Molybdenum/Tungsten riboswitch aptamer (Moco RNA motif): a 148-nucleotide sequence from Reinekea forsetii.
A search with the family's covariance model found it, with a score of 61 bits.
Taxonomically the source falls in Reinekea (Bacteria, Pseudomonadati, Oceanospirillales, Saccharospirillaceae).
RNA sequence: UAACUGCAUUUACACCGAGUGACCCUGUACUACGUUCGGUUGGCCCCGCCAAUCUUAUAUGUCACGGCCACCUCGCAUAGAGCGACAGGGUUCGAGCUGGAAACGGCAGGGCCUCCCGACUUUGGAAAGGUGAACAAUGUUACAAGAU
Numbered sequence: 001u002a003a004c005u006g007c008a009u010u011u012a013c014a015c016c017g018a019g020u021g022a023c024c025c026u027g028u029a030c031u032a033c034g035u036u037c038g039g040u041u042g043g044c045c046c047c048g049c050c051a052a053u054c055u056u057a058u059a060u061g062u063c064a065c066g067g068c069c070a071c072c073u074c075g076c077a078u079a080g081a082g083c084g085a086c087a088g089g090g091u092u093c094g095a096g097c098u099g100g101a102a103a104c105g106g107c108a109g110g111g112c113c114u115c116c117c118g119a120c121u122u123u124g125g126a127a128a129g130g131u132g133a134a135c136a137a138u139g140u141u142a143c144a145a146g147a148u
Stems, first nucleotide, its partner, number of pairs: 011134001013132004019071003023067002026064001029062002034058002073085004088114006096107004115125002